[Rfam]
RNA sequence: AGGCUGGCUUUAGCCCGCGGUUCCUUUGAGUCUGGCUUCCCAAUUGCCCUGGCCGAUUAGUCUGGUGGUUCAAGACCCGCGGGCACUCUCUAGUCCUUUA
Numbered sequence: 001a002g003g004c005u006g007g008c009u010u011u012a013g014c015c016c017g018c019g020g021u022u023c024c025u026u027u028g029a030g031u032c033u034g035g036c037u038u039c040c041c042a043a044u045u046g047c048c049c050u051g052g053c054c055g056a057u058u059a060g061u062c063u064g065g066u067g068g069u070u071c072a073a074g075a076c077c078c079g080c081g082g083g084c085a086c087u088c089u090c091u092a093g094u095c096c097u098u099u100a
Base pairs, nucleotide, nucleotide: 002095003094004093005092006091007090013084014083015082016081017080018079019078020077025074026073027072028071029070

Overview
The family of this 100-nucleotide RNA sequence from Cavia porcellus is "Vault RNA". Taxonomically the source falls in Cavia (Eukaryota, Craniata, Vertebrata, Hystricomorpha). The family has 73 seed sequences and 2,873 matches in Rfam 15.1. The base pairs follow the family's consensus structure, which is taken from published work.